[Rfam]
RNA sequence: UUUGCAUCGGCAAAUCGGCACGACCAGCUCCUGCUGAAUUCCCCCAGGACCGGAAGGUAGCAAGGGUAGGCGGUUGUAGCGGUGCGAUGUUGGUUUGCCAUUUU
Numbered sequence: 001u002u003u004g005c006a007u008c009g010g011c012a013a014a015u016c017g018g019c020a021c022g023a024c025c026a027g028c029u030c031c032u033g034c035u036g037a038a039u040u041c042c043c044c045c046a047g048g049a050c051c052g053g054a055a056g057g058u059a060g061c062a063a064g065g066g067u068a069g070g071c072g073g074u075u076g077u078a079g080c081g082g083u084g085c086g087a088u089g090u091u092g093g094u095u096u097g098c099c100a101u102u103u104u
Stems, first nucleotide, its partner, number of pairs: 009099012021086002023083002
Shown here is a 104-nucleotide RNA sequence from Marivirga atlantica, a member of the family "Bacteroidales small SRP". On this family, see Ryan et al., Nat Commun 2020: "A high-resolution transcriptome map identifies small RNA regulation of metabolism in the gut microbe Bacteroides thetaiotaomicron". NCBI's taxonomy places the organism under Bacteria, Bacteroidota, Cytophagia, Marivirgaceae, Marivirga.